[Rfam]
Background: The family of this 141-nucleotide RNA sequence from a Fimbriimonadaceae bacterium is "c-di-AMP riboswitch aptamer (ydaO/yuaA leader)". Gene Ontology terms of the family: cyclic-di-AMP binding and regulation of gene expression. Taxonomically the source falls in Fimbriimonadaceae (Bacteria, Bacillati, Armatimonadota, Fimbriimonadales).

RNA sequence: CAAAGCCAACCGUCUAAUUUCCCGUUAAACCGGGGGAGCGGGGGACCCGUUAACUUGGGGUGAAUGGGGCUCUUCUGAGCCACUAGGGUAACUCUUGGCCCGAACCCGACAGCUAACCCCGUAGGCGUAGCGAGAGUCGGG
Numbered sequence: 001c002a003a004a005g006c007c008a009a010c011c012g013u014c015u016a017a018u019u020u021c022c023c024g025u026u027a028a029a030c031c032g033g034g035g036g037a038g039c040g041g042g043g044g045a046c047c048c049g050u051u052a053a054c055u056u057g058g059g060g061u062g063a064a065u066g067g068g069g070c071u072c073u074u075c076u077g078a079g080c081c082a083c084u085a086g087g088g089u090a091a092c093u094c095u096u097g098g099c100c101c102g103a104a105c106c107c108g109a110c111a112g113c114u115a116a117c118c119c120c121g122u123a124g125g126c127g128u129a130g131c132g133a134g135a136g137u138c139g140g141g
Stems, first nucleotide, its partner, number of pairs: 001124001006036002038122006048057002058107003066083001068081002086101004
On this family, see Barrick et al., Proc Natl Acad Sci U S A 2004: "New RNA motifs suggest an expanded scope for riboswitches in bacterial genetic control".